RNA: Small nucleolar RNA SNORD75
RNA sequence: AGCCUGUGAUGGAAUAAGAGCAGUGGACAGAGGAGAUUUCUGAAAAAUCAUUCGGAGGCU
Numbered sequence: 001a002g003c004c005u006g007u008g009a010u011g012g013a014a015u016a017a018g019a020g021c022a023g024u025g026g027a028c029a030g031a032g033g034a035g036a037u038u039u040c041u042g043a044a045a046a047a048u049c050a051u052u053c054g055g056a057g058g059c060u
Base pairs, nucleotide, nucleotide: 001060002059003058004057